Shown here is a 92-nucleotide RNA sequence from Aegilops tauschii, a member of the family "Small nucleolar RNA R38". A search with the family's covariance model found it, with a score of 56 bits. From the family's description: snoR38 is a C/D box small nucleolar RNA conserved across yeast, human, Arabidopsis and rice. It is encoded in the intron of elongation factor-1 gamma in both pombe and cerevisiae. snoR38 guides the methylation of 2'-O-ribose sites in 28S rRNA.
[Rfam]
RNA sequence: GUAUGUGGAUGAUGAGAUCACAAGUAAAAUACAGUUAUCCCUGUCUUACUUUCUCGGAAGGGUGCUGAGAAUACUUUCAAUCUGACACGAUU
Numbered sequence: 001g002u003a004u005g006u007g008g009a010u011g012a013u014g015a016g017a018u019c020a021c022a023a024g025u026a027a028a029a030u031a032c033a034g035u036u037a038u039c040c041c042u043g044u045c046u047u048a049c050u051u052u053c054u055c056g057g058a059a060g061g062g063u064g065c066u067g068a069g070a071a072u073a074c075u076u077u078c079a080a081u082c083u084g085a086c087a088c089g090a091u092u
Stems, first nucleotide, its partner, number of pairs: 001092001004089004